[Rfam]
RNA sequence: CAUAGACCGCUCUUUUACUAUUUGUCCAGCAGGUUCUUACUGUGUAGGAGCCCAA
Numbered sequence: 001c002a003u004a005g006a007c008c009g010c011u012c013u014u015u016u017a018c019u020a021u022u023u024g025u026c027c028a029g030c031a032g033g034u035u036c037u038u039a040c041u042g043u044g045u046a047g048g049a050g051c052c053c054a055a
Base pairs, nucleotide, nucleotide: 032052033051034050035049036048037047038046039045